[Rfam]
RNA sequence: AACAUAGCACAUUUAAAAACUUGUAUAUACCUUGAAUAUGGCAAGGAGUAUCUACCGGAAACCGUAAAAUUCCGACUAUGAGUGAUAUUAGUAUAGGC
Numbered sequence: 001a002a003c004a005u006a007g008c009a010c011a012u013u014u015a016a017a018a019a020c021u022u023g024u025a026u027a028u029a030c031c032u033u034g035a036a037u038a039u040g041g042c043a044a045g046g047a048g049u050a051u052c053u054a055c056c057g058g059a060a061a062c063c064g065u066a067a068a069a070u071u072c073c074g075a076c077u078a079u080g081a082g083u084g085a086u087a088u089u090a091g092u093a094u095a096g097g098c
Base pairs, nucleotide, nucleotide: 019083020082021081022080023079024078025077030046031045032044033043034042056074057073058072059071060070
Dot-bracket structure: ..................(((((((....(((((.......))))).........(((((.........)))))..)))))))...............